[Rfam]
The record is a 97-nucleotide RNA from Vibrio navarrensis, which matches "t44 RNA" in Rfam. The organism belongs to Vibrio, within Bacteria. A search with the family's covariance model found it, with a score of 81 bits.

RNA sequence: AAACUUUUUUUAUUAAAUCACACACAUUCCGACACAUGUUCCGGGGUGCCCGCCAUAAAGGUUAGGGUCGGAUGCAUGGGGGAUGUGGAGGCCUAAC
Numbered sequence: 001a002a003a004c005u006u007u008u009u010u011u012a013u014u015a016a017a018u019c020a021c022a023c024a025c026a027u028u029c030c031g032a033c034a035c036a037u038g039u040u041c042c043g044g045g046g047u048g049c050c051c052g053c054c055a056u057a058a059a060g061g062u063u064a065g066g067g068u069c070g071g072a073u074g075c076a077u078g079g080g081g082g083a084u085g086u087g088g089a090g091g092c093c094u095a096a097c
Stems, first nucleotide, its partner, number of pairs: 023087008035078005040072004048068004